Record summary: A member of the RNA family "Group II catalytic intron D1-D4-7", 152 nucleotides long. The base pairs follow the family's consensus structure. It is one of the family's seed sequences. Rfam describes the family as follows. Group II introns are found in rRNA, tRNA and mRNA of organelles in fungi, plants and protists, and also in mRNA in bacteria. Rfam links the family to the GO term Group II intron splicing.

Nucleotides: 152
Base pairs, nucleotide, nucleotide: 002019003018004017005016006015007014028069029068030067031066032065033060034059035058036057037056039054040053041052042051043050044049085098086097087096088095089094099124100123101122102121108115109114126145127144128143129142130141131140
Number, partner (000 for none) and nucleotide at each position: 001000c002019c003018u004017g005016a006015u007014g008000u009000u010000c011000u012000g013000c014007c015006a016005u017004c018003a019002g020000u021000a022000u023000c024000c025000u026000a027000c028069c029068a030067g031066g032065c033060g034059g035058u036057g037056c038000g039054u040053c041052g042051c043050u044049g045000g046000u047000a048000a049044c050043g051042g052041c053040g054039g055000g056037g057036u058035g059034c060033u061000a062000a063000g064000c065032g066031c067030c068029u069028g070000g071000g072000a073000c074000a075000c076000g077000u078000g079000u080000a081000a082000c083000c084000u085098c086097a087096u088095c089094c090000u091000u092000c093000g094089g095088g096087a097086u098085g099124g100123c101122a102121a103000c104000u105000u106000a107000a108115u109114c110000g111000u112000g113000a114109g115108a116000a117000g118000c119000g120000g121102u122101u123100g124099c125000g126145a127144c128143u129142g130141c131140c132000a133000g134000c135000a136000u137000c138000a139000a140131g141130g142129c143128g144127g145126u146000u147000g148000g149000g150000a151000a152000c